[Rfam]
RNA sequence: CUUGUGGGGGUGUCCCUCAGCCCGGAUUGCAAGAGGGUGCAGGCCAGGCCAAGGGACCCCAUCAGUGCCGG
Numbered sequence: 001c002u003u004g005u006g007g008g009g010g011u012g013u014c015c016c017u018c019a020g021c022c023c024g025g026a027u028u029g030c031a032a033g034a035g036g037g038u039g040c041a042g043g044c045c046a047g048g049c050c051a052a053g054g055g056a057c058c059c060c061a062u063c064a065g066u067g068c069c070g071g
Base pairs, nucleotide, nucleotide: 005064006063007062009060010059012057013056014055015054016053017052020049021048022047024045025044027042028041029040030039031038
RNA: mir-9193 microRNA precursor family
Organism: Myotis lucifugus